[Rfam]
glmS glucosamine-6-phosphate activated ribozyme aptamer: a 164-nucleotide RNA from Halalkalibacter hemicellulosilyticus. The base pairs follow the family's consensus structure, which is taken from published work. The match comes from Rfam's covariance-model search (133 bits). The source organism's lineage runs through Bacteria, Bacillati, Bacillota, Bacilli and Halalkalibacter hemicellulosilyticus.

RNA sequence: UUGCAACGAAAAGCGCCAGGACUACACGAGUGAAUGUGUAGUUGACGAGGAGAGGGUUUAUCGAUUGUUCGGCGGAUGCCCUCCGGUUGUAGCAUGACAGCCGCCAAGCUUUUGUAAAAAACAUAGAGGCAACUCUAUGGACAAAGUCAGAAGCAACAUGCCUU
Numbered sequence: 001u002u003g004c005a006a007c008g009a010a011a012a013g014c015g016c017c018a019g020g021a022c023u024a025c026a027c028g029a030g031u032g033a034a035u036g037u038g039u040a041g042u043u044g045a046c047g048a049g050g051a052g053a054g055g056g057u058u059u060a061u062c063g064a065u066u067g068u069u070c071g072g073c074g075g076a077u078g079c080c081c082u083c084c085g086g087u088u089g090u091a092g093c094a095u096g097a098c099a100g101c102c103g104c105c106a107a108g109c110u111u112u113u114g115u116a117a118a119a120a121a122c123a124u125a126g127a128g129g130c131a132a133c134u135c136u137a138u139g140g141a142c143a144a145a146g147u148c149a150g151a152a153g154c155a156a157c158a159u160g161c162c163u164u
Stems, first nucleotide, its partner, number of pairs: 020043008052083005061072004084103006108154007122139007